[Rfam]
RNA: Plastid-clpP 5UTR RNA
Organism: Dendrobium catenatum
RNA sequence: AUUUCUAUUUAUAAAAACAAAGACAAAAAGAUCGUAUUAUAUACCUGGUAAGUACCAAUACACAACAGGA
Numbered sequence: 001a002u003u004u005c006u007a008u009u010u011a012u013a014a015a016a017a018c019a020a021a022g023a024c025a026a027a028a029a030g031a032u033c034g035u036a037u038u039a040u041a042u043a044c045c046u047g048g049u050a051a052g053u054a055c056c057a058a059u060a061c062a063c064a065a066c067a068g069g070a
Base pairs, nucleotide, nucleotide: 003022004021006019008017009016010015044069045068046067052061053060054059
Dot-bracket structure: ..((.(.(((....))).).)).....................(((.....(((....))).....))).